[Rfam]
RNA sequence: GAAUUUCGAUUAACGCUUGGCCUUUGGCCGAGCCAACUGGAAG
Numbered sequence: 001g002a003a004u005u006u007c008g009a010u011u012a013a014c015g016c017u018u019g020g021c022c023u024u025u026g027g028c029c030g031a032g033c034c035a036a037c038u039g040g041a042a043g
Stems, first nucleotide, its partner, number of pairs: 015033007
The record is a 43-nucleotide RNA from Klebsiella sp. RIT-PI-d, which matches "nuoG RNA" in Rfam.
It is annotated as a cis-regulatory element.
The organism belongs to Klebsiella, within Bacteria.